[Rfam]
RNA: Glycine riboswitch aptamer
RNA sequence: CGAUGCCUCUGGAAAGCGGUGGCCCGACUCGGGUCACCCGCCCAUGGGGAAAGACAUGCGGAUGUCGAAUCUCUCAGGCGCCCGGUUCGGGUAGACGACAGAGGGGGAGGA
Numbered sequence: 001c002g003a004u005g006c007c008u009c010u011g012g013a014a015a016g017c018g019g020u021g022g023c024c025c026g027a028c029u030c031g032g033g034u035c036a037c038c039c040g041c042c043c044a045u046g047g048g049g050a051a052a053g054a055c056a057u058g059c060g061g062a063u064g065u066c067g068a069a070u071c072u073c074u075c076a077g078g079c080g081c082c083c084g085g086u087u088c089g090g091g092u093a094g095a096c097g098a099c100a101g102a103g104g105g106g107g108a109g110g111a
Base pairs, nucleotide, nucleotide: 004106006104007103008102009101010100011099018038019037020036021035022034023033024032040079041078042077044074047073048072049071053066054065